RNA sequence: GGGCCGGUAGCUUAGCCUGGUUAGAGCGGCGGACUCUUAAUCCGCAGGUCGGGGGUUCGAAUCCCCCCCGGCCCG
Dot-bracket structure: (((((((..((((..........)))).(((((.......))))).....(((((.......)))))))))))).
This 75-nucleotide sequence from Thermococcus kodakarensis belongs to the Rfam family "tRNA".
A search with the family's covariance model found it, with a score of 72 bits.
It is annotated as a transfer RNA.
The organism belongs to Thermococcus kodakarensis, within Archaea.